The family of this 92-nucleotide RNA sequence from Chrysochloris asiatica is "Small nucleolar RNA SNORD116".
The match comes from Rfam's covariance-model search (94 bits).
The family's consensus secondary structure was predicted with PFOLD.
[Rfam]
RNA sequence: GGAUCGAUGAUGACUACUCCAUAUACAUUCCUUGGAAAUUUGAACAAAAUGAGUGAAAAACGCUUACUGUCUCAUGCAUCAACCUGAGGUCC
Numbered sequence: 001g002g003a004u005c006g007a008u009g010a011u012g013a014c015u016a017c018u019c020c021a022u023a024u025a026c027a028u029u030c031c032u033u034g035g036a037a038a039u040u041u042g043a044a045c046a047a048a049a050u051g052a053g054u055g056a057a058a059a060a061c062g063c064u065u066a067c068u069g070u071c072u073c074a075u076g077c078a079u080c081a082a083c084c085u086g087a088g089g090u091c092c
Stems, first nucleotide, its partner, number of pairs: 001092005026055005032047003